[Rfam]
A member of the RNA family "Xanthine riboswitch aptamer (NMT1 RNA)" from Pigmentiphaga litoralis, 88 nucleotides long. Gene Ontology term of the family: purine nucleobase binding. On this family, see Yu and Breaker, RNA 2020: "A bacterial riboswitch class senses xanthine and uric acid to regulate genes associated with purine oxidation". Taxonomically the source falls in Pigmentiphaga (Bacteria, Pseudomonadota, Burkholderiales, Alcaligenaceae). It scores 45 bits against the family's covariance model.

Nucleotides: 088
Base pairs, nucleotide, nucleotide: 005084006083007082008081009080010079015073018075019074021070022069023068024067
Number, partner (000 for none) and nucleotide at each position: 001000c002000g003000c004000a005084a006083g007082a008081g009080u010079a011000g012000a013000a014000g015073c016000g017000u018075u019074c020000a021070c022069c023068a024067c025000c026000u027000a028000c029000c030000a031000u032000u033000c034000c035000u036000u037000c038000a039000g040000c041000a042000c043000c044000g045000c046000u047000a048000c049000g050000g051000u052000g053000c054000a055000c056000g057000g058000g059000u060000c061000g062000c063000c064000a065000g066000u067024g068023u069022g070021g071000c072000c073015g074019g075018a076000a077000a078000u079010u080009g081008c082007u083006c084005u085000u086000g087000a088000a